[Rfam]
RNA sequence: GGGUCAAUGACGAGUACUUAAUAUUGCCUUGAGGAAUGGUGAAGACUUCAAUAUCAAGUACAAUGGCAUGACGCUGACGCCC
Numbered sequence: 001g002g003g004u005c006a007a008u009g010a011c012g013a014g015u016a017c018u019u020a021a022u023a024u025u026g027c028c029u030u031g032a033g034g035a036a037u038g039g040u041g042a043a044g045a046c047u048u049c050a051a052u053a054u055c056a057a058g059u060a061c062a063a064u065g066g067c068a069u070g071a072c073g074c075u076g077a078c079g080c081c082c
Stems, first nucleotide, its partner, number of pairs: 001082004005076002008073002